[Rfam]
RNA sequence: CCGCAGGCUCCAGCGUGGGGGGGCCUGGCGUGGCCCCUGCCAUUCCUGCAGUGCUGCCAGAGUAUCCUGGGAACGUUUGAGGCCUCUCGCGGCGCUUCCCGGGAGUGGUCAUGGAACCCCCAGACACCC
Numbered sequence: 001c002c003g004c005a006g007g008c009u010c011c012a013g014c015g016u017g018g019g020g021g022g023g024c025c026u027g028g029c030g031u032g033g034c035c036c037c038u039g040c041c042a043u044u045c046c047u048g049c050a051g052u053g054c055u056g057c058c059a060g061a062g063u064a065u066c067c068u069g070g071g072a073a074c075g076u077u078u079g080a081g082g083c084c085u086c087u088c089g090c091g092g093c094g095c096u097u098c099c100c101g102g103g104a105g106u107g108g109u110c111a112u113g114g115a116a117c118c119c120c121c122a123g124a125c126a127c128c129c
Stems, first nucleotide, its partner, number of pairs: 003057003007054002016042003021036005068122004083108002086105003090101003
Small nucleolar RNA SNORA9: a 129-nucleotide sequence from Cephalopterus ornatus. ACA9 is a member of the H/ACA class of snoRNA that guide the sites of modification of uridines to pseudouridines. Gene Ontology terms of the family: RNA processing and nucleolus.